RNA sequence: UUGUAUUUGAUUGUAGAUAGAGUGUAGAUUUUUAUCUAUGGUUCCUCUGUUUAUAGACAACAAUGCGUAGAUUAAAAGCCUAAUUUUUUUUAAACUUAGGCAGCGGCCAGACAACCGUAGAGAUGGUUUCCACAGAUGAACAGUUUUUGACAUCUGUUUGUCUACUAAAAUCUAUCUCACAUUG
Numbered sequence: 001u002u003g004u005a006u007u008u009g010a011u012u013g014u015a016g017a018u019a020g021a022g023u024g025u026a027g028a029u030u031u032u033u034a035u036c037u038a039u040g041g042u043u044c045c046u047c048u049g050u051u052u053a054u055a056g057a058c059a060a061c062a063a064u065g066c067g068u069a070g071a072u073u074a075a076a077a078g079c080c081u082a083a084u085u086u087u088u089u090u091u092a093a094a095c096u097u098a099g100g101c102a103g104c105g106g107c108c109a110g111a112c113a114a115c116c117g118u119a120g121a122g123a124u125g126g127u128u129u130c131c132a133c134a135g136a137u138g139a140a141c142a143g144u145u146u147u148u149g150a151c152a153u154c155u156g157u158u159u160g161u162c163u164a165c166u167a168a169a170a171u172c173u174a175u176c177u178c179a180c181a182u183u184g
Stems, first nucleotide, its partner, number of pairs: 002067005007060003011056012024043001120178007127170001139159002141156003
Shown here is a 184-nucleotide RNA sequence from Helianthus annuus, a member of the family "small nucleolar RNA snoR143".
Pairs were carried over by alignment from the consensus structure, which was predicted with RNAalifold.
For this family Rfam cites "Mining small RNA sequencing data: a new approach to identify small nucleolar RNAs in Arabidopsis" (Chen and Wu, Nucleic Acids Res, 2009).
It scores 69 bits against the family's covariance model.
Rfam 15.1 lists 660 matches to the family in 212 species.